A member of the RNA family "Listeria sRNA sbrA" from Neobacillus piezotolerans, 67 nucleotides long. Rfam classes the family as a small RNA. The source organism's lineage runs through Bacteria, Bacillota, Bacilli, Bacillaceae and Neobacillus. A reference for the family is Toledo-Arana et al. (2009), "The Listeria transcriptional landscape from saprophytism to virulence", Nature.
[Rfam]
Nucleotides: 067
Base pairs, nucleotide, nucleotide: 005035006034008032009031039060040059041058042057043056044055045054046053047052
Number, partner (000 for none) and nucleotide at each position: 001000c002000u003000a004000c005035a006034g007000c008032u009031a010000g011000a012000u013000c014000c015000a016000u017000a018000c019000c020000c021000c022000u023000a024000a025000a026000c027000u028000c029000c030000c031009u032008a033000a034006u035005u036000u037000u038000u039060g040059g041058a042057u043056a044055g045054c046053g047052c048000a049000u050000a051000u052047g053046u054045g055044c056043u057042a058041u059040c060039c061000g062000c063000u064000u065000u066000u067000u